[Rfam]
RNA sequence: GUCCGCGAACCGUGAGGAAACGUCUCCCCUUGCGGAUCCGGCGAAAUACGAAAUAAAGGAG
Numbered sequence: 001g002u003c004c005g006c007g008a009a010c011c012g013u014g015a016g017g018a019a020a021c022g023u024c025u026c027c028c029c030u031u032g033c034g035g036a037u038c039c040g041g042c043g044a045a046a047u048a049c050g051a052a053a054u055a056a057a058g059g060a061g
Stems, first nucleotide, its partner, number of pairs: 003041003007038002010035008
Description
A member of the RNA family "L20-Deltaproteobacteria ribosomal protein leader", 61 nucleotides long. The family's RNA type in Rfam is cis-regulatory leader. The base pairs follow the family's consensus structure, which is taken from published work.